[Rfam]
RNA sequence: GAAAGGUUACAGGAAACUGUGGCUGGACGCAGCGAAGAAGGAUGAAGAUCCCGGCGUCCCAAUUUGA
Numbered sequence: 001g002a003a004a005g006g007u008u009a010c011a012g013g014a015a016a017c018u019g020u021g022g023c024u025g026g027a028c029g030c031a032g033c034g035a036a037g038a039a040g041g042a043u044g045a046a047g048a049u050c051c052c053g054g055c056g057u058c059c060c061a062a063u064u065u066g067a
Stems, first nucleotide, its partner, number of pairs: 005024008025059006
The record is a 67-nucleotide sequence, which matches "S4-Clostridia ribosomal protein leader" in Rfam. The family's RNA type in Rfam is cis-regulatory leader.